small nucleolar RNA snoR137: a 160-nucleotide sequence from Rhamnella rubrinervis. Gene Ontology terms of the family: RNA processing and nucleolus. By type it is an H/ACA-box small nucleolar RNA. The source organism's lineage runs through Eukaryota, Streptophytina, Tracheophyta, Rhamneae and Rhamnella.
[Rfam]
RNA sequence: GUUGCUUCAUAAUGGUGGACGCUCCUUUGAUUAUAAAAAUAGUGGGGGAUGUUCAAGUUUCCGAAGCAUACAUAGAUUUGAUUUCUAAUGUCUUUGCCAGUAUUAAACAGCAAUGUGCACUUUUGUUCGUGCACUUUGCUACCUGUCUCCUGGUAUACUU
Numbered sequence: 001g002u003u004g005c006u007u008c009a010u011a012a013u014g015g016u017g018g019a020c021g022c023u024c025c026u027u028u029g030a031u032u033a034u035a036a037a038a039a040u041a042g043u044g045g046g047g048g049a050u051g052u053u054c055a056a057g058u059u060u061c062c063g064a065a066g067c068a069u070a071c072a073u074a075g076a077u078u079u080g081a082u083u084u085c086u087a088a089u090g091u092c093u094u095u096g097c098c099a100g101u102a103u104u105a106a107a108c109a110g111c112a113a114u115g116u117g118c119a120c121u122u123u124u125g126u127u128c129g130u131g132c133a134c135u136u137u138g139c140u141a142c143c144u145g146u147c148u149c150c151u152g153g154u155a156u157a158c159u160u
Stems, first nucleotide, its partner, number of pairs: 003068006016055005022048004096154005102148001109140003113136001115134003
Dot-bracket structure: ..((((((.......(((((.((((...................))))..))))).......))))))...........................(((((.(......(((.(.(((..............))).).))).......).)))))......

A reference for the family is Chen and Wu (2009), "Mining small RNA sequencing data: a new approach to identify small nucleolar RNAs in Arabidopsis", Nucleic Acids Res.